[Rfam]
RNA sequence: GGAGCAGCUUCUGGAGAGAAUGCAGUUUAACAGCAGCGCCGAAGGGUUCAAAAUCUCAGGCAAAAGGACAGAAGAGAGACA
Numbered sequence: 001g002g003a004g005c006a007g008c009u010u011c012u013g014g015a016g017a018g019a020a021u022g023c024a025g026u027u028u029a030a031c032a033g034c035a036g037c038g039c040c041g042a043a044g045g046g047u048u049c050a051a052a053a054u055c056u057c058a059g060g061c062a063a064a065a066g067g068a069c070a071g072a073a074g075a076g077a078g079a080c081a
Base pairs, nucleotide, nucleotide: 008074009073010072011071012070013069021035022034023033038061039060040059041057042056045055046054047053
Notes:
Rfam assigns this 81-nucleotide sequence from Cytobacillus dafuensis to the family "Glycine riboswitch aptamer". Its family is annotated with glycine biosynthetic process in the Gene Ontology.